This 230-nucleotide part of an RNA from Finegoldia magna belongs to the Rfam family "Bacterial large subunit ribosomal RNA". Lineage of the source: Bacteria > Tissierellia > Tissierellales > Peptoniphilaceae > Finegoldia magna. The family's consensus secondary structure is taken from published work.
RNA sequence: GAGUUACGAUACGUAGCAAGAUUAAACAUUUAAGAUGUGAAGUCGUAGGGAAACCGAGUCUUAAUAGGGCAAAAGUUGCGUGUUGUAGACCCGAAACCGGGUGAUCUAUCCAUGGGCAGAGUGAAGGUAAAGUAAAAUUUACUGGAGGCUCGAACCGGGUAGCGUUUAAAAGCUAUCGGAUGACCUGUGGAUAGGGGUGAAAAGCCAAUCGAACUCGGAUAUAGCUGGUU
Numbered sequence: 001g002a003g004u005u006a007c008g009a010u011a012c013g014u015a016g017c018a019a020g021a022u023u024a025a026a027c028a029u030u031u032a033a034g035a036u037g038u039g040a041a042g043u044c045g046u047a048g049g050g051a052a053a054c055c056g057a058g059u060c061u062u063a064a065u066a067g068g069g070c071a072a073a074a075g076u077u078g079c080g081u082g083u084u085g086u087a088g089a090c091c092c093g094a095a096a097c098c099g100g101g102u103g104a105u106c107u108a109u110c111c112a113u114g115g116g117c118a119g120a121g122u123g124a125a126g127g128u129a130a131a132g133u134a135a136a137a138u139u140u141a142c143u144g145g146a147g148g149c150u151c152g153a154a155c156c157g158g159g160u161a162g163c164g165u166u167u168a169a170a171a172g173c174u175a176u177c178g179g180a181u182g183a184c185c186u187g188u189g190g191a192u193a194g195g196g197g198u199g200a201a202a203a204g205c206c207a208a209u210c211g212a213a214c215u216c217g218g219a220u221a222u223a224g225c226u227g228g229u230u
Stems, first nucleotide, its partner, number of pairs: 005087013020044004026038003048055002058070004090228002093225001097218006106194011117182001119151004126143006155179003159176005196206003